Shown here is a 102-nucleotide RNA sequence from Rossellomorea vietnamensis, a member of the family "Purine riboswitch aptamer".
Nucleotides: 102
Stems, first nucleotide, its partner, number of pairs: 018088002021085005030048006058078007
Number, partner (000 for none) and nucleotide at each position: 001000a002000a003000c004000a005000u006000a007000a008000u009000a010000a011000a012000a013000g014000u015000a016000u017000u018088a019087c020000g021085u022084c023083g024082u025081a026000u027000a028000a029000u030048u031047u032046c033045g034044g035043g036000a037000a038000u039000a040000a041000g042000g043035c044034c045033c046032g047031a048030g049000c050000g051000u052000u053000u054000c055000u056000a057000c058078c059077a060076a061075g062074c063073u064072a065000c066000c067000g068000u069000a070000a071000a072064u073063g074062g075061c076060u077059u078058g079000a080000c081025u082024a083023c084022g085021a086000g087019g088018u089000g090000a091000u092000g093000g094000a095000u096000g097000a098000u099000a100000g101000g102000a
Overview: It scores 90 bits against the family's covariance model. Rfam links the family to the GO term purine nucleobase biosynthetic process.